[Rfam]
RNA sequence: GCCCUCCGGCUGGGUCGGACGGUCUGGUGCGCUUGAUGUGUUUUCGGUACCAUCGCACAUCAGGCUGAACGACUCAGAGGAGUGGC
Numbered sequence: 001g002c003c004c005u006c007c008g009g010c011u012g013g014g015u016c017g018g019a020c021g022g023u024c025u026g027g028u029g030c031g032c033u034u035g036a037u038g039u040g041u042u043u044u045c046g047g048u049a050c051c052a053u054c055g056c057a058c059a060u061c062a063g064g065c066u067g068a069a070c071g072a073c074u075c076a077g078a079g080g081a082g083u084g085g086c
Base pairs, nucleotide, nucleotide: 001086002085003084004082005081006080007079010077011076012075013074014073015072016071017070020067021066022065023064024063025062026061027060028059029058031056032055035054036053037052038051040050041049
Rfam assigns this 86-nucleotide RNA sequence from Lymphocryptovirus macacinegamma4 to the family "mir-rL1-14 microRNA precursor family".
The organism belongs to Lymphocryptovirus macacinegamma4, within Viruses.